[Rfam]
RNA sequence: AUUUCUCUGAGAUGUUUGCAAGUGGGCCAGUCCCCUGAGCCGAUAUUUCAAAACCACAGAGUGUGGCGCUCCGCAGCCUGUGUGCAUGCCCGGUCCGUCCGGGAAGCCUAAUGGUUACGACGACACAUUCACCUUGAACCAAGGGUUCAAGGGUUACAGCCUACGGCGGCAUCUCGGAGAUUCC
Numbered sequence: 001a002u003u004u005c006u007c008u009g010a011g012a013u014g015u016u017u018g019c020a021a022g023u024g025g026g027c028c029a030g031u032c033c034c035c036u037g038a039g040c041c042g043a044u045a046u047u048u049c050a051a052a053a054c055c056a057c058a059g060a061g062u063g064u065g066g067c068g069c070u071c072c073g074c075a076g077c078c079u080g081u082g083u084g085c086a087u088g089c090c091c092g093g094u095c096c097g098u099c100c101g102g103g104a105a106g107c108c109u110a111a112u113g114g115u116u117a118c119g120a121c122g123a124c125a126c127a128u129u130c131a132c133c134u135u136g137a138a139c140c141a142a143g144g145g146u147u148c149a150a151g152g153g154u155u156a157c158a159g160c161c162u163a164c165g166g167c168g169g170c171a172u173c174u175c176g177g178a179g180a181u182u183c184c
Stems, first nucleotide, its partner, number of pairs: 004180012017168003032153003036149006059130003063126003067122002070120001072119002075116004084107002089103005
Dot-bracket structure: ...((((((((((((.(((............(((.((((((.................(((.(((.((.(.((.((((.....((...(((((.....)))))..)).....)))).))))).))).))).............)))))).)))............)))))))))))))))....
RNA: 6S / SsrS RNA
Organism: Pantoea alhagi